[Rfam]
RNA sequence: GCCGAACUGAUCCUGGCUGGUGCUGGGUGCGGGCUUCAAACCCGUAGCGGCCGGGAGGCCGAGUGGUUCGAUUCCACCUGGUCGGC
Numbered sequence: 001g002c003c004g005a006a007c008u009g010a011u012c013c014u015g016g017c018u019g020g021u022g023c024u025g026g027g028u029g030c031g032g033g034c035u036u037c038a039a040a041c042c043c044g045u046a047g048c049g050g051c052c053g054g055g056a057g058g059c060c061g062a063g064u065g066g067u068u069c070g071a072u073u074c075c076a077c078c079u080g081g082u083c084g085g086c
Base pairs, nucleotide, nucleotide: 001086002085003084004083005082007080009078012027013026014025015024016023017022028046029045030044031043032042033041048061049060050059051058052057063077064076065075066074
RNA: Selenocysteine transfer RNA
Organism: Scenedesmus sp. NREL 46B-D3